[Rfam]
RNA sequence: CUUCCCGUUUGACUACCACUCCUUCAGUUUACAGAUUGAGUGGCUAUGCUUAUGGGAUAGAGAAAAUACUGCCAAGAUCUGAAGGAGAAGAUUGACAAUAUCUUUUUCCUAUAUGAAAUGGCAGAACACAGAAUG
Numbered sequence: 001c002u003u004c005c006c007g008u009u010u011g012a013c014u015a016c017c018a019c020u021c022c023u024u025c026a027g028u029u030u031a032c033a034g035a036u037u038g039a040g041u042g043g044c045u046a047u048g049c050u051u052a053u054g055g056g057a058u059a060g061a062g063a064a065a066a067u068a069c070u071g072c073c074a075a076g077a078u079c080u081g082a083a084g085g086a087g088a089a090g091a092u093u094g095a096c097a098a099u100a101u102c103u104u105u106u107u108c109c110u111a112u113a114u115g116a117a118a119u120g121g122c123a124g125a126a127c128a129c130a131g132a133a134u135g
Stems, first nucleotide, its partner, number of pairs: 004056004016043004071122004088110001090108002
Dot-bracket structure: ...((((........((((....................)))).........))))..............((((.............(.((...............)).)........)))).............

The record is a 135-nucleotide sequence from Gopherus agassizii, which matches "Small nucleolar RNA SNORA29" in Rfam. Rfam 15.1 lists 960 matches to the family in 621 species. The source organism's lineage runs through Eukaryota, Eumetazoa, Deuterostomia, Testudinidae and Gopherus. ACA29 is a member of the H/ACA class of snoRNA that guide the sites of modification of uridines to pseudouridines. The literature on the family includes a 2001 paper in EMBO J by Huttenhofer et al., "RNomics: an experimental approach that identifies 201 candidates for novel, small, non-messenger RNAs in mouse". The base pairs follow the family's consensus structure, which was predicted with PFOLD.